[Rfam]
RNA sequence: AGAUGUGAGGGCGAACUGGCUGUGACAUCUUUCACCCCACCGAUUGCUAAGGCUGAUCUGACUGGGUUGGUGGGUGUCUCCUUCCUCCCCCACCAUUCCAUGCGCAUCCCUCCCAAAGCUGCUUACGUAGUGAAAGAGGAUAACUUUCCCUGAUAGAGAUGUCCCAUUCAUUGCUCAAGGGUAUAUGGUAGCUGCAUUCCCUUGCUAGAAUCUCCAAACAAGCUCAGGGUCCAUUUGUAGGAGAACAUAGGGUAGUCAAGCUUCUAGGACUGCAGGUACAUCCAAGUGAGGUACUGUAUGGGGCAGUCUGCCAUUGUUU
Numbered sequence: 001a002g003a004u005g006u007g008a009g010g011g012c013g014a015a016c017u018g019g020c021u022g023u024g025a026c027a028u029c030u031u032u033c034a035c036c037c038c039a040c041c042g043a044u045u046g047c048u049a050a051g052g053c054u055g056a057u058c059u060g061a062c063u064g065g066g067u068u069g070g071u072g073g074g075u076g077u078c079u080c081c082u083u084c085c086u087c088c089c090c091c092a093c094c095a096u097u098c099c100a101u102g103c104g105c106a107u108c109c110c111u112c113c114c115a116a117a118g119c120u121g122c123u124u125a126c127g128u129a130g131u132g133a134a135a136g137a138g139g140a141u142a143a144c145u146u147u148c149c150c151u152g153a154u155a156g157a158g159a160u161g162u163c164c165c166a167u168u169c170a171u172u173g174c175u176c177a178a179g180g181g182u183a184u185a186u187g188g189u190a191g192c193u194g195c196a197u198u199c200c201c202u203u204g205c206u207a208g209a210a211u212c213u214c215c216a217a218a219c220a221a222g223c224u225c226a227g228g229g230u231c232c233a234u235u236u237g238u239a240g241g242a243g244a245a246c247a248u249a250g251g252g253u254a255g256u257c258a259a260g261c262u263u264c265u266a267g268g269a270c271u272g273c274a275g276g277u278a279c280a281u282c283c284a285a286g287u288g289a290g291g292u293a294c295u296g297u298a299u300g301g302g303g304c305a306g307u308c309u310g311c312c313a314u315u316g317u318u319u
Stems, first nucleotide, its partner, number of pairs: 002098002005093003009089003013084002018081002024078007032070002035065002038060002042058004046053002108161001110158003113130001115128001118126001131153001133151001138149003191261003197255002200252005212243004218238005284319003288314001290312003293307005
Dot-bracket structure: .((.(((.(((.((...((....(((((((.((.((.((..((((((....)).))))))...))...)).))))))).)).))..))).)))...)).........(.((((.(..(.......).).)(.(....(((......))).).)..)))..).............................(((...((.(((((.......((((..(((((...........))))).))))....))))).))...)))......................(((.(.((((((((.....)))))..))).)..)))

7SK RNA: a 319-nucleotide sequence from Meleagris gallopavo. Lineage of the source: Eukaryota > Bilateria > Amniota > Saurischia > Meleagris. It is annotated as a non-coding RNA gene. Pairs were carried over by alignment from the consensus structure, which is taken from published work. Rfam's curators write: 7SK was discovered as an abundant small nuclear RNA in the mid-70s but a possible function has only recently been suggested.